Description: L17 ribosomal protein downstream element: a 75-nucleotide sequence from Vagococcus silagei.
[Rfam]
RNA sequence: AGAGUGUUAUGAUGUUGGAGUAUUCUUACUCCGAGUCUAGCUCGGUGCUUGCCCUCCGAAAUUCGUUUCGGGGGG
Numbered sequence: 001a002g003a004g005u006g007u008u009a010u011g012a013u014g015u016u017g018g019a020g021u022a023u024u025c026u027u028a029c030u031c032c033g034a035g036u037c038u039a040g041c042u043c044g045g046u047g048c049u050u051g052c053c054c055u056c057c058g059a060a061a062u063u064c065g066u067u068u069c070g071g072g073g074g075g
Stems, first nucleotide, its partner, number of pairs: 002043004011037003017032006052075009

By type it is a cis-regulatory element.